Rfam assigns this 91-nucleotide sequence from Lentzea tibetensis to the family "Glycine riboswitch aptamer".
The pairing is the family consensus, mapped onto this sequence.
RNA sequence: CGAUGUCGCGCGGGAGAGUCCCACCACGGGUGGGCGCCGAAGGAGCAAGUCCUCCCCGGAAUCUCUCAGGCACAGCUACCGCACGACGAAG
Numbered sequence: 001c002g003a004u005g006u007c008g009c010g011c012g013g014g015a016g017a018g019u020c021c022c023a024c025c026a027c028g029g030g031u032g033g034g035c036g037c038c039g040a041a042g043g044a045g046c047a048a049g050u051c052c053u054c055c056c057c058g059g060a061a062u063c064u065c066u067c068a069g070g071c072a073c074a075g076c077u078a079c080c081g082c083a084c085g086a087c088g089a090a091g
Stems, first nucleotide, its partner, number of pairs: 006086003010082004020034004036071003039067002043065003